A member of the RNA family "mir-181 microRNA precursor family" from Egretta garzetta, 82 nucleotides long. Pairs were carried over by alignment from the consensus structure, which was predicted with PFOLD.

[Rfam]
RNA sequence: AGGCUCCGGAGAACAUUCAACGCUGUCGGUGAGUUUGUGGUUGAGGUGAAACCAUCGACCGUUGCGUGUGCCCCGUGGCCCG
Numbered sequence: 001a002g003g004c005u006c007c008g009g010a011g012a013a014c015a016u017u018c019a020a021c022g023c024u025g026u027c028g029g030u031g032a033g034u035u036u037g038u039g040g041u042u043g044a045g046g047u048g049a050a051a052c053c054a055u056c057g058a059c060c061g062u063u064g065c066g067u068g069u070g071c072c073c074c075g076u077g078g079c080c081c082g
Stems, first nucleotide, its partner, number of pairs: 002081002004078002007075002014068003018064005025059007033052004